[Rfam]
RNA sequence: UCCCCGCUUCCCUCCCUGAGCGGGUGGAUGGCUCAGACUCCCCCAAGUUGAGCCUUUAUUGAGCCCCGGCGCCAGCCGGGGCUUUUUUUU
Number, nucleotide and partner (000 for none) at each position: 001u000002c000003c024004c023005c022006g021007c020008u019009u000010c000011c000012c000013u000014c000015c000016c000017u000018g000019a008020g007021c006022g005023g004024g003025u000026g000027g000028a000029u000030g054031g053032c052033u051034c050035a049036g048037a000038c000039u000040c000041c000042c000043c000044c000045a000046a000047g000048u036049u035050g034051a033052g032053c031054c030055u000056u000057u000058a000059u000060u000061g000062a000063g082064c081065c080066c079067c078068g077069g076070c075071g000072c000073c000074a000075g070076c069077c068078g067079g066080g065081g064082c063083u000084u000085u000086u000087u000088u000089u000090u000
RNA: Burkholderia RNA 7 (anti-hemB)
Organism: Thioalkalivibrio denitrificans